[Rfam]
RNA sequence: CCCCUAAUGGGAAGUGAAGACCCCGUGGAGCUUUACUGCAGCCUGUUGUUGGGUUGUGGUUUCGGAUGUAGAGGAUAGGUAGGAGGCGUAGAAGCCCGGGCGCCAGCUCGGGUGGAGCCGACCUUGGAAUACUACCCUUCUGUGGCUACGACCCUAACUCCGAGAGGAGGACACCAAUAGGUGGGCAGUUUGGGUGGGGCGCCACGCCCUAGAAAAGAUAUCUAGGGCGCCCUAAGGUUGACUCAAUUGGGUCGGAAACCCAAUGAAGAGUGCAAAAGCAUAAGUCAGCCUGACGUCAUCUCGCAAAGCAAGAGACGACGAGACGAAAGUCGGGUUUAGCGAACCUCUAUACCUCCUUGGUGGGGGUUUUAGAUGACAGAAAAGCUACCCCGGGGAUAACAGAGUCGUCACCGGCAAGAGCACACAUCGACCCGGUGGCUUGCUACCUCGAUGUCGGUUCUUUCCAUCCUGGCCGUGCAGCAGCGGCCAAGGGUGAGGUUGUUCGCCUAUUAAAGGAGAUCGUGAGCUGGGUUUAGACCGUCGUGAGACAGGUCGGUUACUAUCUAUUAGGGGUGUUUU
Dot-bracket structure: ((((((((.(((.((......((((.(((((((.((((...(((((((..(((((((((((.((((.(.........(((((..(((.........(((((....)))))......)))............)))))).)))).)))))))))))...((((....)))).....)))))))....))))..((((.....))).)((((((...........))))))..((....((((((((.((((((.......))))))...))((......))....))))))....((((.((((.........)))).)))).(.(....).).))..........((..(.(((((.......))))))..)).........)))))..))))))........(((.((((((((...((.......))...)))))))..))))..........(((((((((((..((..(((((......)))))....))..((((.....))))......)))))..)..)))).).....(((((((....))).))))....))..)))))))))))......

The family of this 579-nucleotide part of an RNA from Methanothrix harundinacea is "Archaeal large subunit ribosomal RNA". Clan: LSU clan. Pairs were carried over by alignment from the consensus structure, which is taken from published work. The match comes from Rfam's covariance-model search (2936 bits).